[Rfam]
RNA sequence: UAUGUCUAUUCGCUGAAUUUCCGCCGGAGGGCGGAAAGCGGGGGAACCGGUCGUGUCUGCAGCAUCCGCUGCGGCCAUAUGGGGUGAAUCUCGAAAGUGAUGAGUAGGGCUACUCUUGGGCCCGAAUCCGUCAGCUAACCACGCAAGCGUGUUAAGAGAGGCAGC
Dot-bracket structure: ..........((((...((((((((....))))))))(((.((....((..............................))(((.....((((.......))))..((((.........))))...))).........)).))).))))................
RNA: c-di-AMP riboswitch aptamer (ydaO/yuaA leader)